[Rfam]
A member of the RNA family "DnaX ribosomal frameshifting element" from Klebsiella pneumoniae, 65 nucleotides long.

RNA sequence: GUCAGGGAGCAACCACCCCAAAAAAGAGUGAACCGGCAGCCGCUUCCCGCGCGCGGCCGGUGAAU
Dot-bracket structure: ...............................((((((.(((((.....))).)).))))))....
Overview: This family represents a ribosomal frameshifting element found in the mRNA of the dnaX gene in E. coli. The dnaX gene has two encoded products tau and gamma which are produced in a 1:1 ratio. The gamma protein is synthesised due to programmed frameshifting and is shorter than tau. The two products of the dnaX gene are DNA polymerase III subunits.